[Rfam]
RNA sequence: UAGCUAUAAAAUAACUUAUUCUGUAGCCACUUUAAGUUACGAUAAUUACUAUGUUAAUUUACGAGAUUACAGUAACUCAUUUCUAAGUAGUUUACUAUAACGUUAUGGUAAAUAUCCUCAUAUGAACCCAACUAUUGUAAAUAUGUAUUAACAUUAUCAUAAAUUAGUAUAUAAAAUUAUCGUAAAUAGAGGUGGCUACAAAAUAAUUUAUUUUGUAGCUA
Numbered sequence: 001u002a003g004c005u006a007u008a009a010a011a012u013a014a015c016u017u018a019u020u021c022u023g024u025a026g027c028c029a030c031u032u033u034a035a036g037u038u039a040c041g042a043u044a045a046u047u048a049c050u051a052u053g054u055u056a057a058u059u060u061a062c063g064a065g066a067u068u069a070c071a072g073u074a075a076c077u078c079a080u081u082u083c084u085a086a087g088u089a090g091u092u093u094a095c096u097a098u099a100a101c102g103u104u105a106u107g108g109u110a111a112a113u114a115u116c117c118u119c120a121u122a123u124g125a126a127c128c129c130a131a132c133u134a135u136u137g138u139a140a141a142u143a144u145g146u147a148u149u150a151a152c153a154u155u156a157u158c159a160u161a162a163a164u165u166a167g168u169a170u171a172u173a174a175a176a177u178u179a180u181c182g183u184a185a186a187u188a189g190a191g192g193u194g195g196c197u198a199c200a201a202a203a204u205a206a207u208u209u210a211u212u213u214u215g216u217a218g219c220u221a
Base pairs, nucleotide, nucleotide: 001221002220003219004218005217006216007215008214009213010212011211012210013209014208016206017205018204019203020202022200023199024198025197026196027195028194029193030192031191032190033189037185038184039183040182041181042180043179044178045177046176047175050171051170052169053168054167055166056165057164058163059162060161061160065158066157067156069154074148080140081139083137087135088134089133090132091131092130093125101124102123103122107117108116